[Rfam]
RNA: Small nucleolar RNA snoR99
Organism: Setaria italica
RNA sequence: GUGCCUGUGGGAUGAACAGGUCCCAACAUUUACUUCCAUUUUUUCACUUUGUCAGCUAAUAGCCAUACAUUUUAGCUGAUCAUUAAGAAUGGAAAAUGC
Numbered sequence: 001g002u003g004c005c006u007g008u009g010g011g012a013u014g015a016a017c018a019g020g021u022c023c024c025a026a027c028a029u030u031u032a033c034u035u036c037c038a039u040u041u042u043u044u045c046a047c048u049u050u051g052u053c054a055g056c057u058a059a060u061a062g063c064c065a066u067a068c069a070u071u072u073u074a075g076c077u078g079a080u081c082a083u084u085a086a087g088a089a090u091g092g093a094a095a096a097u098g099c
Stems, first nucleotide, its partner, number of pairs: 035093006051080008